[Rfam]
RNA: mir-34 microRNA precursor family
RNA sequence: GUCACAGUGGCAGUGUGGUUAGCUGGUUGUGUAACAUGUGUCACUGCCACUAUCUGCACUGCCCUUGUGCC
Numbered sequence: 001g002u003c004a005c006a007g008u009g010g011c012a013g014u015g016u017g018g019u020u021a022g023c024u025g026g027u028u029g030u031g032u033a034a035c036a037u038g039u040g041u042c043a044c045u046g047c048c049a050c051u052a053u054c055u056g057c058a059c060u061g062c063c064c065u066u067g068u069g070c071c
Base pairs, nucleotide, nucleotide: 003069004068005067006066009063010062012060013059014058015057016056017055018054020052021051022050024049025048026047027046029044030043031042